[Rfam]
Archaeal small subunit ribosomal RNA: a 359-nucleotide part of an RNA from Candidatus Nanosalina sp. J07AB43. Gene Ontology terms of the family: ribosome and structural constituent of ribosome. On this family, see Yusupov et al., Science 2001: "Crystal structure of the ribosome at 5.5 A resolution". The organism belongs to Candidatus Nanosalina, within Archaea.
RNA sequence: GGCUUAAAGUGUUCGUAGCCGGACACACAAGUCUGCUGUGAAAUCCAUGCGCUUAACGUAUGGACAUGCAGCGGAUACUGCGUGUCUAGGAACCGGACGGCGUCGAGGCUAUUCCCGGGGUAGGGGUGAAAUCCUAAAAUCCUGGGAGGAGCACCUGUGGCGAAAGCGCUCGACGAGUACGGAUUCGACGGUGAGGAACGAAAGCCAGUGGAGCAAAACGGAUUAGAUACCCGUGUAGUACUGGCUGUAAACAUUGUGCGUUUGAUGUCGGACAACCUCCGAGGUUGUCCGGUGCCGAAGUGAAAACGUUAAACGCACCGCCUGGGGAGUACGGUCGCAAGGCUGAAACUUAAAGGAAU
Numbered sequence: 001g002g003c004u005u006a007a008a009g010u011g012u013u014c015g016u017a018g019c020c021g022g023a024c025a026c027a028c029a030a031g032u033c034u035g036c037u038g039u040g041a042a043a044u045c046c047a048u049g050c051g052c053u054u055a056a057c058g059u060a061u062g063g064a065c066a067u068g069c070a071g072c073g074g075a076u077a078c079u080g081c082g083u084g085u086c087u088a089g090g091a092a093c094c095g096g097a098c099g100g101c102g103u104c105g106a107g108g109c110u111a112u113u114c115c116c117g118g119g120g121u122a123g124g125g126g127u128g129a130a131a132u133c134c135u136a137a138a139a140u141c142c143u144g145g146g147a148g149g150a151g152c153a154c155c156u157g158u159g160g161c162g163a164a165a166g167c168g169c170u171c172g173a174c175g176a177g178u179a180c181g182g183a184u185u186c187g188a189c190g191g192u193g194a195g196g197a198a199c200g201a202a203a204g205c206c207a208g209u210g211g212a213g214c215a216a217a218a219c220g221g222a223u224u225a226g227a228u229a230c231c232c233g234u235g236u237a238g239u240a241c242u243g244g245c246u247g248u249a250a251a252c253a254u255u256g257u258g259c260g261u262u263u264g265a266u267g268u269c270g271g272a273c274a275a276c277c278u279c280c281g282a283g284g285u286u287g288u289c290c291g292g293u294g295c296c297g298a299a300g301u302g303a304a305a306a307c308g309u310u311a312a313a314c315g316c317a318c319c320g321c322c323u324g325g326g327g328a329g330u331a332c333g334g335u336c337g338c339a340a341g342g343c344u345g346a347a348a349c350u351u352a353a354a355g356g357a358a359u
Stems, first nucleotide, its partner, number of pairs: 001322003009319001011199004016193001018192003022086005028080001030079002032075009045063007090186003093182003097178002101175007108152002112148008123134003160167002204245006213239002218234004256318006264296001266294012300307002324351003333344004